[Rfam]
Rfam assigns this 74-nucleotide RNA sequence from Thalassospira mesophila to the family "tRNA".
RNA sequence: GCCGGCAUAGCUUUAAUUGGUAGAGCAGCGGAUUUGUAAUCCGAAGGUUGGGAGUUCGACUCUCUCUGCCGGCA
Numbered sequence: 001g002c003c004g005g006c007a008u009a010g011c012u013u014u015a016a017u018u019g020g021u022a023g024a025g026c027a028g029c030g031g032a033u034u035u036g037u038a039a040u041c042c043g044a045a046g047g048u049u050g051g052g053a054g055u056u057c058g059a060c061u062c063u064c065u066c067u068g069c070c071g072g073c074a
Stems, first nucleotide, its partner, number of pairs: 001073007010026004029043004050066005

A search with the family's covariance model found it, with a score of 62 bits. Taxonomically the source falls in Thalassospira (Bacteria, Pseudomonadati, Pseudomonadota, Thalassospiraceae).